[Rfam]
RNA sequence: GGUUCGGGAGUCGUGCGGUGGGACGCACGGCACGAAUUGAACCCCGCCCUCAUUCGCCGCCUUGUGCAGUCCGGGCCCCGACGGCCUGCG
Numbered sequence: 001g002g003u004u005c006g007g008g009a010g011u012c013g014u015g016c017g018g019u020g021g022g023a024c025g026c027a028c029g030g031c032a033c034g035a036a037u038u039g040a041a042c043c044c045c046g047c048c049c050u051c052a053u054u055c056g057c058c059g060c061c062u063u064g065u066g067c068a069g070u071c072c073g074g075g076c077c078c079c080g081a082c083g084g085c086c087u088g089c090g
Stems, first nucleotide, its partner, number of pairs: 001043005010031008065090005071084003
Dot-bracket structure: (((((....((((((((......)))))))).......))))).....................(((((.(((........))).)))))
Rhodo-rpoB RNA: a 90-nucleotide RNA sequence from Paracoccus sp. TRP.
The sequence is in the family's curated seed alignment.
NCBI's taxonomy places the organism under Bacteria, Pseudomonadota, Rhodobacterales, Paracoccaceae, Paracoccus.
The base pairs follow the family's consensus structure, which is taken from published work.